A member of the RNA family "SAH (S-adenosyl-L-homocysteine) riboswitch aptamer" from Ramlibacter agri, 72 nucleotides long. The family has 52 seed sequences and 1,354 matches in Rfam 15.1. The base pairs follow the family's consensus structure, which is taken from published work.
RNA sequence: CCAACCGAGGAGCGUUGCAGCGUCCGCCAUGGACGCGAGGCUCGGACAUCCAUGCAACGACGCUCACCCACG
Numbered sequence: 001c002c003a004a005c006c007g008a009g010g011a012g013c014g015u016u017g018c019a020g021c022g023u024c025c026g027c028c029a030u031g032g033a034c035g036c037g038a039g040g041c042u043c044g045g046a047c048a049u050c051c052a053u054g055c056a057a058c059g060a061c062g063c064u065c066a067c068c069c070a071c072g
Base pairs, nucleotide, nucleotide: 005045006044007043008042021035022034023033024032025031026030